[Rfam]
RNA sequence: UAUGCACCCAAACCCAAAGCUCCUAUCUGUAGUGGUGGGAGUUUGUCUGGCGUGCUAACAGAAGUUGGGCCCCUGUCGCCUUUCUGGGACUCUUCUGUGUCUCUGAAAGUGAAUUCAGGAGUCAACAAAG
Number, nucleotide and partner (000 for none) at each position: 001u000002a000003u000004g055005c054006a053007c052008c000009c050010a000011a000012a000013c000014c000015c000016a000017a000018a000019g042020c041021u040022c039023c038024u037025a036026u035027c034028u000029g000030u000031a000032g000033u000034g027035g026036u025037g024038g023039g022040a021041g020042u019043u000044u000045g000046u000047c000048u000049g000050g009051c000052g007053u006054g005055c004056u000057a000058a000059c000060a000061g000062a000063a000064g000065u000066u000067g000068g123069g122070c121071c000072c119073c118074u117075g000076u000077c000078g000079c000080c109081u108082u107083u106084c105085u000086g103087g102088g101089a100090c099091u000092c000093u000094u000095c000096u000097g000098u000099g090100u089101c088102u087103c086104u000105g084106a083107a082108a081109g080110u000111g000112a000113a000114u000115u000116c000117a074118g073119g072120a000121g070122u069123c068124a000125a000126c000127a000128a000129a000130g000
RNA: Small nucleolar RNA SNORA68